RNA sequence: AACUAUCACAGCUCUUCUAGAAUUUGUCUAGCAGGUUUUCUAGCUUGUGCUGGAAAACCCUA
Numbered sequence: 001a002a003c004u005a006u007c008a009c010a011g012c013u014c015u016u017c018u019a020g021a022a023u024u025u026g027u028c029u030a031g032c033a034g035g036u037u038u039u040c041u042a043g044c045u046u047g048u049g050c051u052g053g054a055a056a057a058c059c060c061u062a
Stems, first nucleotide, its partner, number of pairs: 034059011
RNA: U7 small nuclear RNA